This 101-nucleotide RNA sequence from Acetobacterium paludosum belongs to the Rfam family "azaaromatic riboswitch aptamer (yjdF RNA)".
Taxonomically the source falls in Acetobacterium (Bacteria, Bacillota, Clostridia, Eubacteriaceae).
The family's consensus secondary structure is taken from published work.
RNA sequence: UGAUGCGUAGAUAAAAACACAGUUCUGGCCGGUAGUCCAGACGCAGAAAGUUUCUGUCAGUAACCUGCCUCCUAUGGUUGUCCCUUCUUCGCUAGUAGUUU
Numbered sequence: 001u002g003a004u005g006c007g008u009a010g011a012u013a014a015a016a017a018c019a020c021a022g023u024u025c026u027g028g029c030c031g032g033u034a035g036u037c038c039a040g041a042c043g044c045a046g047a048a049a050g051u052u053u054c055u056g057u058c059a060g061u062a063a064c065c066u067g068c069c070u071c072c073u074a075u076g077g078u079u080g081u082c083c084c085u086u087c088u089u090c091g092c093u094a095g096u097a098g099u100u101u
Base pairs, nucleotide, nucleotide: 005092006091007090009088010087011086022042023041025040026039027038028037043057044056045055046054047053048052067078068077069076
Dot-bracket structure: ....(((.(((..........((.((((........))))))((((((...)))))).........(((......))).......))).))).........